pan motif: an 84-nucleotide RNA sequence from Halalkalibacter akibai. A search with the family's covariance model found it, with a score of 62 bits. The family's RNA type in Rfam is cis-regulatory element.
RNA sequence: UGGGCGGUAUCCUUUUUUCGGAACUGCACCGUUUGACUAUUUAAAUAGGAUCUGCCUUGAUCCAUCAAGGACUAGGACAGAGGG
Numbered sequence: 001u002g003g004g005c006g007g008u009a010u011c012c013u014u015u016u017u018u019c020g021g022a023a024c025u026g027c028a029c030c031g032u033u034u035g036a037c038u039a040u041u042u043a044a045a046u047a048g049g050a051u052c053u054g055c056c057u058u059g060a061u062c063c064a065u066c067a068a069g070g071a072c073u074a075g076g077a078c079a080g081a082g083g084g
Stems, first nucleotide, its partner, number of pairs: 001031003004027005010022002052080003055076003059072001061071003